[Rfam]
RNA sequence: AUUCUAUGGUCUUGAACAAUGGCCAAAACUGUAGUGAACCUAUGGUUAUAAAUCAUCAAAUUGACGGGAAACCCCUAAAGAAAUCUUAACUAAGUAAGUAUGGUAACAUAACUUAUGGCACAGGUAAUGACUCGUGGUACAGUAACAUCAAGAUUUAUUAUUCAAUGGGCAAUCCGCAGCCAAGUACCAAGUAUUAAAUAUUUGGUAUGCAGUUCAUCGACUAAACGGUGGUUGGUAUUAUUAGUGUUAAUAAUGCUUAAGAUAUAGUCAGACCCCUCCUGAAAAGGUGCA
Numbered sequence: 001a002u003u004c005u006a007u008g009g010u011c012u013u014g015a016a017c018a019a020u021g022g023c024c025a026a027a028a029c030u031g032u033a034g035u036g037a038a039c040c041u042a043u044g045g046u047u048a049u050a051a052a053u054c055a056u057c058a059a060a061u062u063g064a065c066g067g068g069a070a071a072c073c074c075c076u077a078a079a080g081a082a083a084u085c086u087u088a089a090c091u092a093a094g095u096a097a098g099u100a101u102g103g104u105a106a107c108a109u110a111a112c113u114u115a116u117g118g119c120a121c122a123g124g125u126a127a128u129g130a131c132u133c134g135u136g137g138u139a140c141a142g143u144a145a146c147a148u149c150a151a152g153a154u155u156u157a158u159u160a161u162u163c164a165a166u167g168g169g170c171a172a173u174c175c176g177c178a179g180c181c182a183a184g185u186a187c188c189a190a191g192u193a194u195u196a197a198a199u200a201u202u203u204g205g206u207a208u209g210c211a212g213u214u215c216a217u218c219g220a221c222u223a224a225a226c227g228g229u230g231g232u233u234g235g236u237a238u239u240a241u242u243a244g245u246g247u248u249a250a251u252a253a254u255g256c257u258u259a260a261g262a263u264a265u266a267g268u269c270a271g272a273c274c275c276c277u278c279c280u281g282a283a284a285a286g287g288u289g290c291a
Stems, first nucleotide, its partner, number of pairs: 001007002020026001051233005057227001062178002065176004073169003179213002184208004217270001219269005235256009276289001278287003
Group I catalytic intron: a 291-nucleotide RNA sequence from Plenodomus lingam.
Pairs were carried over by alignment from the consensus structure, which is taken from published work.
On this family, see Cech, Annu Rev Biochem 1990: "Self-splicing of group I introns".
Group I catalytic introns are large self-splicing ribozymes. They catalyse their own excision from mRNA, tRNA and rRNA precursors in a wide range of organisms. The core secondary structure consists of 9 paired regions (P1-P9).
The organism belongs to Plenodomus lingam, within Eukaryota.
A search with the family's covariance model found it, with a score of 95 bits.